[Rfam]
RNA: drz-agam-1 ribozyme
Organism: Hermetia illucens
RNA sequence: CUCCUACCAAACCCUGUUUCCACUUCCACGUGGUGGCCGCUGGGAGCUCUUUCUAAACGAAAAGCUGCAGACGGAGAAGG
Numbered sequence: 001c002u003c004c005u006a007c008c009a010a011a012c013c014c015u016g017u018u019u020c021c022a023c024u025u026c027c028a029c030g031u032g033g034u035g036g037c038c039g040c041u042g043g044g045a046g047c048u049c050u051u052u053c054u055a056a057a058c059g060a061a062a063a064g065c066u067g068c069a070g071a072c073g074g075a076g077a078a079g080g
Stems, first nucleotide, its partner, number of pairs: 013080003017076004022034003045066004050061002053059001